A member of the RNA family "Small nucleolar RNA U54" from Papaver nudicaule, 92 nucleotides long.
Rfam describes the family as follows. U54 is a C/D box small nucleolar RNA, which acts as a methylation guide for 18S ribosomal RNA in plants.
The family is grouped with related families in Rfam's "U54 clan".
The family has 21 seed sequences and 614 matches in Rfam 15.1.
Gene Ontology terms of the family: RNA processing and nucleolus.
Lineage of the source: Eukaryota > Viridiplantae > Streptophyta > Ranunculales > Papaver.
The base pairs follow the family's consensus structure, which was predicted with PFOLD.
A search with the family's covariance model found it, with a score of 47 bits.
For this family Rfam cites "The high diversity of snoRNAs in plants: identification and comparative study of 120 snoRNA genes from Oryza sativa" (Chen et al., Nucleic Acids Res, 2003).
[Rfam]
RNA sequence: AGCUCAAUGAUUACAAGCCGUUACAGGCAAUAUACGCUAUUCUCAUUGGUAUAUUAUCAACAGGAUGAUAACACAAAAUGCAUAUGAGAGCU
Numbered sequence: 001a002g003c004u005c006a007a008u009g010a011u012u013a014c015a016a017g018c019c020g021u022u023a024c025a026g027g028c029a030a031u032a033u034a035c036g037c038u039a040u041u042c043u044c045a046u047u048g049g050u051a052u053a054u055u056a057u058c059a060a061c062a063g064g065a066u067g068a069u070a071a072c073a074c075a076a077a078a079u080g081c082a083u084a085u086g087a088g089a090g091c092u
Base pairs, nucleotide, nucleotide: 001092002091003090004089005088